[Rfam]
RNA sequence: ACCGUCCUUAUCUUGGGGUUGCGCGGCUGCUCAAUGAACGUGUGGUGAGAGCAGCACUGCUAACGCCUGAGCAACACGCACGCGCCCGCCGCUCGCGGCGCGGCGCAAUUUUUGGAACC
Number, nucleotide and partner (000 for none) at each position: 001a000002c000003c000004g000005u000006c018007c017008u016009u015010a000011u000012c000013u000014u000015g009016g008017g007018g006019u000020u000021g060022c059023g058024c000025g000026g055027c054028u053029g052030c051031u050032c049033a000034a000035u000036g000037a000038a046039c045040g000041u000042g000043u000044g000045g039046u038047g000048a000049g032050a031051g030052c029053a028054g027055c026056a000057c000058u023059g022060c021061u000062a000063a000064c000065g000066c000067c000068u000069g000070a000071g000072c000073a000074a000075c000076a000077c000078g000079c000080a000081c000082g106083c105084g104085c103086c102087c100088g099089c098090c097091g096092c000093u000094c000095g000096c091097g090098g089099c088100g087101c000102g086103g085104c084105g083106c082107a000108a000109u000110u000111u000112u000113u000114g000115g000116a000117a000118c000119c000